This 122-nucleotide sequence from Pelusios castaneus belongs to the Rfam family "Small nucleolar RNA SNORD22". On this family, see Tycowski et al., Nature 1996: "A mammalian gene with introns instead of exons generating stable RNA products". The base pairs follow the family's consensus structure, which was predicted with PFOLD. By type it is a C/D-box small nucleolar RNA. The match comes from Rfam's covariance-model search (57 bits). Taxonomically the source falls in Pelusios (Eukaryota, Opisthokonta, Chordata, Pleurodira).
RNA sequence: UCCAGAGGAAGAGAGCAGGUCACUCCUGACUGUUCAUCCUUGGCCAGAGCUGCCACGGUUGAACCUACUGGGCUGGUGGAGGGAGAGGAGGAGAAUGUUCCCAAAGGAACCGUCUGAUGGGA
Dot-bracket structure: ((((.................................................................................................................)))).
Numbered sequence: 001u002c003c004a005g006a007g008g009a010a011g012a013g014a015g016c017a018g019g020u021c022a023c024u025c026c027u028g029a030c031u032g033u034u035c036a037u038c039c040u041u042g043g044c045c046a047g048a049g050c051u052g053c054c055a056c057g058g059u060u061g062a063a064c065c066u067a068c069u070g071g072g073c074u075g076g077u078g079g080a081g082g083g084a085g086a087g088g089a090g091g092a093g094a095a096u097g098u099u100c101c102c103a104a105a106g107g108a109a110c111c112g113u114c115u116g117a118u119g120g121g122a
Stems, first nucleotide, its partner, number of pairs: 001121004